RNA sequence: AGGAAGGUGGGGUCCAUGGUGGACAACCGGUCUUGAAAACCGGCCGGCUGUAGCGAUACGGUCACAGUUCGAUUCUGUCACCUUCCU
Dot-bracket structure: (((((((((..(((((...)))))..(((((.......)))))..(((((........)))))((((.......)))))))))))))
This 87-nucleotide sequence from Ralstonia phage RsoM2USA belongs to the Rfam family "Selenocysteine transfer RNA". Rfam 15.1 lists 4,211 matches to the family in 3,344 species. It scores 49 bits against the family's covariance model.